[Rfam]
RNA: Small nucleolar RNA SNORD113/SNORD114 family
Organism: Camelus dromedarius
RNA sequence: UGGGUAAAUGAUGACGGCUCGUGGUGUGAGUCUUGGGUGAUGAGCCCCACAGGUCUGGGGUUCUGAGGUCCAG
Numbered sequence: 001u002g003g004g005u006a007a008a009u010g011a012u013g014a015c016g017g018c019u020c021g022u023g024g025u026g027u028g029a030g031u032c033u034u035g036g037g038u039g040a041u042g043a044g045c046c047c048c049a050c051a052g053g054u055c056u057g058g059g060g061u062u063c064u065g066a067g068g069u070c071c072a073g
Stems, first nucleotide, its partner, number of pairs: 002071004